[Rfam]
RNA: M-box riboswitch aptamer (ykoK leader)
RNA sequence: AAGGGAUUCUGUUAGGUGAGGCUCCUGAAUAGAGAAAUGCUGCUGCCCAAAAAUGUCGAGAGACGCCAAUGGGUCAACAAGAAAGAUCGGAAGAAGGUCUUUUUUAACGUAGCUGGUUAUUUAGAACCUAUGCUAUUCAGUGCUAAAGCUCAACGAGGGAAACCGGC
Numbered sequence: 001a002a003g004g005g006a007u008u009c010u011g012u013u014a015g016g017u018g019a020g021g022c023u024c025c026u027g028a029a030u031a032g033a034g035a036a037a038u039g040c041u042g043c044u045g046c047c048c049a050a051a052a053a054u055g056u057c058g059a060g061a062g063a064c065g066c067c068a069a070u071g072g073g074u075c076a077a078c079a080a081g082a083a084a085g086a087u088c089g090g091a092a093g094a095a096g097g098u099c100u101u102u103u104u105u106a107a108c109g110u111a112g113c114u115g116g117u118u119a120u121u122u123a124g125a126a127c128c129u130a131u132g133c134u135a136u137u138c139a140g141u142g143c144u145a146a147a148g149c150u151c152a153a154c155g156a157g158g159g160a161a162a163c164c165g166g167c
Stems, first nucleotide, its partner, number of pairs: 005163001007161004011154002013095001015150003020144003025140008039113005045074005054065004080104004086098003115128003